[Rfam]
RNA sequence: UGGCUUUGUGGAGAUGGCAUUCCUCCCUAACCGCCGCUAGCGACUGAGCGGCUGAUGAUGCCUACUAGGUC
Numbered sequence: 001u002g003g004c005u006u007u008g009u010g011g012a013g014a015u016g017g018c019a020u021u022c023c024u025c026c027c028u029a030a031c032c033g034c035c036g037c038u039a040g041c042g043a044c045u046g047a048g049c050g051g052c053u054g055a056u057g058a059u060g061c062c063u064a065c066u067a068g069g070u071c
Stems, first nucleotide, its partner, number of pairs: 010026004016062006033052006
Dot-bracket structure: .........[[[[..((((((.]]]]......((((((........))))))....)))))).........
RNA: Fluoride riboswitch aptamer (crcB RNA motif)
Organism: Trinickia dinghuensis